RNA sequence: GUUGUAACUAAUGUUGCAACAAACGAGAACCGAGUAGAGUUCAUGUCAUACCAUGAAUUGUUUAACUGCCCCCUAGGAUUGCCGUCCUAUGGCAGUCGGUUC
Numbered sequence: 001g002u003u004g005u006a007a008c009u010a011a012u013g014u015u016g017c018a019a020c021a022a023a024c025g026a027g028a029a030c031c032g033a034g035u036a037g038a039g040u041u042c043a044u045g046u047c048a049u050a051c052c053a054u055g056a057a058u059u060g061u062u063u064a065a066c067u068g069c070c071c072c073c074u075a076g077g078a079u080u081g082c083c084g085u086c087c088u089a090u091g092g093c094a095g096u097c098g099g100u101u102c
Stems, first nucleotide, its partner, number of pairs: 001020008027102007038059008066095005074089006

Notes: The record is a 102-nucleotide RNA sequence from Enterococcus faecalis, which matches "Anti-Q RNA" in Rfam. A reference for the family is Shokeen et al. (2010), "Structural analysis of the Anti-Q-Qs interaction: RNA-mediated regulation of E. faecalis plasmid pCF10 conjugation", Plasmid. The base pairs follow the family's consensus structure, which is taken from published work. Qa RNA is a cis-regulatory element from Enterococcus faecalis which is known to negatively regulate prgQ transcription via an antisense mechanism.